Record summary: The family of this 101-nucleotide RNA from Polystyrenella longa is "c-di-GMP-I riboswitch aptamer".
RNA sequence: ACCUCGAAAUAGCAAACCUGGUGAAAGCCAGGGACGCAAAGUCAUGGACCGUCGUGCUGAGGAAAGCCUCACCGCUUAGCACUGGUCGCCAGACUUCCGAA
Numbered sequence: 001a002c003c004u005c006g007a008a009a010u011a012g013c014a015a016a017c018c019u020g021g022u023g024a025a026a027g028c029c030a031g032g033g034a035c036g037c038a039a040a041g042u043c044a045u046g047g048a049c050c051g052u053c054g055u056g057c058u059g060a061g062g063a064a065a066g067c068c069u070c071a072c073c074g075c076u077u078a079g080c081a082c083u084g085g086u087c088g089c090c091a092g093a094c095u096u097c098c099g100a101a
Base pairs, nucleotide, nucleotide: 012037013036017032018031019030020029021028022027040095041094042093043092045091046090047089048086049085050084